[Rfam]
RNA sequence: CGGGACUCCUGAGAAGGAUCCUGUAGGCCGCAGCCCCACCCACGGGUGGGGCUGACGUGCG
Numbered sequence: 001c002g003g004g005a006c007u008c009c010u011g012a013g014a015a016g017g018a019u020c021c022u023g024u025a026g027g028c029c030g031c032a033g034c035c036c037c038a039c040c041c042a043c044g045g046g047u048g049g050g051g052c053u054g055a056c057g058u059g060c061g
Base pairs, nucleotide, nucleotide: 002022003021004020005019007018008017009016010015027060028059029057030056031054032053033052034051035050036049037048038047039046040045
RNA: Mycobacterium B11